[Rfam]
This 88-nucleotide RNA from Neobacillus cucumis belongs to the Rfam family "c-di-GMP-I riboswitch aptamer".
Gene Ontology term of the family: cyclic-di-GMP binding.
A search with the family's covariance model found it, with a score of 80 bits.

RNA sequence: AUCCGAUAAUGGCAAACCUGGGGAAAUCCAGGGACGCAAAGCUAUAGGGGCUACCAUCAUUUUAUGAUCAUGCCAGCCAGUUGCCGAA
Numbered sequence: 001a002u003c004c005g006a007u008a009a010u011g012g013c014a015a016a017c018c019u020g021g022g023g024a025a026a027u028c029c030a031g032g033g034a035c036g037c038a039a040a041g042c043u044a045u046a047g048g049g050g051c052u053a054c055c056a057u058c059a060u061u062u063u064a065u066g067a068u069c070a071u072g073c074c075a076g077c078c079a080g081u082u083g084c085c086g087a088a
Stems, first nucleotide, its partner, number of pairs: 012037002017032006040082004047078002049074003056068004